[Rfam]
The record is a 209-nucleotide RNA sequence from Ameiurus melas, which matches "Small nucleolar RNA U3" in Rfam. Lineage of the source: Eukaryota > Vertebrata > Euteleostomi > Otophysi > Ameiurus. Its family is annotated with nucleolus and RNA processing in the Gene Ontology. The literature on the family includes a 2010 paper in RNA Biol by Marz and Stadler, "Comparative analysis of eukaryotic U3 snoRNA".
RNA sequence: AAGACUAUACUUUCAGGGAUCCAGUUCUAUAGUAUGUAAUUUGGAAAUGUGAUUUGAAAGCGUUCUCUCCUAAUCACGAUGAUGAGUUUUGAUGUACUCUUCUGAGCGUGAAUCGGAUUUUGGCUAGUGAUUCAUUCAUGGGCUUAAAUCAUUGAUGAACGUUCUCUGUUUCGUCGGGGUUACGAGAGAGAAGUACAUGAUACAGUGAG
Numbered sequence: 001a002a003g004a005c006u007a008u009a010c011u012u013u014c015a016g017g018g019a020u021c022c023a024g025u026u027c028u029a030u031a032g033u034a035u036g037u038a039a040u041u042u043g044g045a046a047a048u049g050u051g052a053u054u055u056g057a058a059a060g061c062g063u064u065c066u067c068u069c070c071u072a073a074u075c076a077c078g079a080u081g082a083u084g085a086g087u088u089u090u091g092a093u094g095u096a097c098u099c100u101u102c103u104g105a106g107c108g109u110g111a112a113u114c115g116g117a118u119u120u121u122g123g124c125u126a127g128u129g130a131u132u133c134a135u136u137c138a139u140g141g142g143c144u145u146a147a148a149u150c151a152u153u154g155a156u157g158a159a160c161g162u163u164c165u166c167u168g169u170u171u172c173g174u175c176g177g178g179g180u181u182a183c184g185a186g187a188g189a190g191a192a193g194u195a196c197a198u199g200a201u202a203c204a205g206u207g208a209g
Stems, first nucleotide, its partner, number of pairs: 001042003006036006015028004051065002055062001074208004092198007100190004106162003116150004122144004127139004165185002167182002170179003
Dot-bracket structure: (((..((((((...((((......))))..))))))...)))........((..(......).))........((((..............(((((((.((((..(((.......((((..((((.((((.....)))).))))..)))).........)))..((((.(((....))).)).)).)))).)))))))......)))).